A member of the RNA family "Small nucleolar RNA R38" from Climacteris rufus, 76 nucleotides long. NCBI's taxonomy places the organism under Eukaryota, Sarcopterygii, Archelosauria, Neoaves, Climacteris. Gene Ontology terms of the family: nucleolus and RNA processing. snoR38 is a C/D box small nucleolar RNA conserved across yeast, human, Arabidopsis and rice. It is encoded in the intron of elongation factor-1 gamma in both pombe and cerevisiae. snoR38 guides the methylation of 2'-O-ribose sites in 28S rRNA. The literature on the family includes a 1995 paper in Trends Biochem Sci by Bachellerie et al., "Antisense snoRNAs: a family of nucleolar RNAs with long complementarities to rRNA".
RNA sequence: CUGAGCUAGUGAUGAUUAAUGUUAUCCCUGUCUGAACUGGAUCUUUCCUCUGUGGAAGCGUAACUCUGAGGCUCAG
Numbered sequence: 001c002u003g004a005g006c007u008a009g010u011g012a013u014g015a016u017u018a019a020u021g022u023u024a025u026c027c028c029u030g031u032c033u034g035a036a037c038u039g040g041a042u043c044u045u046u047c048c049u050c051u052g053u054g055g056a057a058g059c060g061u062a063a064c065u066c067u068g069a070g071g072c073u074c075a076g
Base pairs, nucleotide, nucleotide: 001076002075003074004073005072006071007070